[Rfam]
A member of the RNA family "DUF805b RNA" from Niastella populi, 32 nucleotides long. Taxonomically the source falls in Niastella (Bacteria, Pseudomonadati, Chitinophagales, Chitinophagaceae). By type it is a cis-regulatory element. Clan: DUF805 clan.
RNA sequence: ACAGACGAAGCCGAAAAUCUUAAGAGUAGGCA
Numbered sequence: 001a002c003a004g005a006c007g008a009a010g011c012c013g014a015a016a017a018u019c020u021u022a023a024g025a026g027u028a029g030g031c032a
Stems, first nucleotide, its partner, number of pairs: 003020003010031003